[Rfam]
RNA sequence: CAAGGCAGGUCGCCGCGCCGCCCGUCCGGGGCGCGGCUCGGGGUGAAGCCGCACGCGCGGCCGGGCUACCUCACGGCCCGAACCCGACAGCUCACCUCGUAGGCGUCGGAGAGGGACGUA
Numbered sequence: 001c002a003a004g005g006c007a008g009g010u011c012g013c014c015g016c017g018c019c020g021c022c023c024g025u026c027c028g029g030g031g032c033g034c035g036g037c038u039c040g041g042g043g044u045g046a047a048g049c050c051g052c053a054c055g056c057g058c059g060g061c062c063g064g065g066c067u068a069c070c071u072c073a074c075g076g077c078c079c080g081a082a083c084c085c086g087a088c089a090g091c092u093c094a095c096c097u098c099g100u101a102g103g104c105g106u107c108g109g110a111g112a113g114g115g116a117c118g119u120a
Base pairs, nucleotide, nucleotide: 001102005025006024027099028098029097030096031095032040033039041085042084043083049060050059051058052057063079064078065077066076
Shown here is a 120-nucleotide sequence from Streptomyces sp. DJ, a member of the family "c-di-AMP riboswitch aptamer (ydaO/yuaA leader)".
The organism belongs to Streptomyces, within Bacteria.
A search with the family's covariance model found it, with a score of 56 bits.